[Rfam]
RNA sequence: AAUAGGAGAACGACAAAUCAAAUUUUUCCUCUUGAUUUUUAGCAUUUUCAGUUGGAUUUGAAUUUUGCAGGAGAAAAAAACUGAAAAUCAGGAGAAAAAAUAUGAUUUGUCAUUUUUUUAUU
Numbered sequence: 001a002a003u004a005g006g007a008g009a010a011c012g013a014c015a016a017a018u019c020a021a022a023u024u025u026u027u028c029c030u031c032u033u034g035a036u037u038u039u040u041a042g043c044a045u046u047u048u049c050a051g052u053u054g055g056a057u058u059u060g061a062a063u064u065u066u067g068c069a070g071g072a073g074a075a076a077a078a079a080a081c082u083g084a085a086a087a088u089c090a091g092g093a094g095a096a097a098a099a100a101u102a103u104g105a106u107u108u109g110u111c112a113u114u115u116u117u118u119u120a121u122u
Base pairs, nucleotide, nucleotide: 001122002121003120004119005118006117007116008115009114010113012111013110014109015108016107017106018105019104020103022101023100024099025098026097027096029094030093031092032091033090034089035088036087037086038085039084041082042081045078046077047076048075
RNA: MIR7504 microRNA precursor family